The family of this 78-nucleotide RNA from Rattus norvegicus is "mir-450 microRNA precursor family". Its family is annotated with RISC complex and miRNA-mediated post-transcriptional gene silencing in the Gene Ontology. On this family, see Chiang et al., Genes Dev 2010: "Mammalian microRNAs: experimental evaluation of novel and previously annotated genes". NCBI's taxonomy places the organism under Eukaryota, Vertebrata, Euarchontoglires, Murinae, Rattus. The family's consensus secondary structure was predicted with RNAalifold. It scores 62 bits against the family's covariance model.

[Rfam]
RNA sequence: ACGGAAUUCUUUUUGCAGUAUGUUCCUGUAUAAGAACAUAAGCGUAUUGGGAACAUUUGGCAUACAUAAUUUUGUAUC
Dot-bracket structure: ...(((((.(...(((.(.((((((((..(((.(........).))).)))))))).).)))...).)))))......
Numbered sequence: 001a002c003g004g005a006a007u008u009c010u011u012u013u014u015g016c017a018g019u020a021u022g023u024u025c026c027u028g029u030a031u032a033a034g035a036a037c038a039u040a041a042g043c044g045u046a047u048u049g050g051g052a053a054c055a056u057u058u059g060g061c062a063u064a065c066a067u068a069a070u071u072u073u074g075u076a077u078c
Stems, first nucleotide, its partner, number of pairs: 004072005010066001014062003018058001020056008030047003034043001